SAM riboswitch aptamer (S box leader): a 123-nucleotide RNA from Acetohalobium arabaticum. A search with the family's covariance model found it, with a score of 87 bits. The family is grouped with related families in Rfam's "SAM clan".
RNA sequence: CUCUUAUCGAGAGAGGCGGAGGGACUGGCCCGAUGAAGCCCGGCAACCGAUAGUAUUAAUCGAUACUAUGUCGGUGCCAAAUCCUGCAGUAAAGAGAUGAUUCUUUUUACUGAAAGAUGAGGG
Numbered sequence: 001c002u003c004u005u006a007u008c009g010a011g012a013g014a015g016g017c018g019g020a021g022g023g024a025c026u027g028g029c030c031c032g033a034u035g036a037a038g039c040c041c042g043g044c045a046a047c048c049g050a051u052a053g054u055a056u057u058a059a060u061c062g063a064u065a066c067u068a069u070g071u072c073g074g075u076g077c078c079a080a081a082u083c084c085u086g087c088a089g090u091a092a093a094g095a096g097a098u099g100a101u102u103c104u105u106u107u108u109a110c111u112g113a114a115a116g117a118u119g120a121g122g123g
Base pairs, nucleotide, nucleotide: 001123002122003121004120005119006118007117008116013041015040016039017038021031022030023029025086027084028083042078043077044076045075047074048073050069051068052067053066054065055064082115087112088111089110090109091108092107093106094105095104096103097102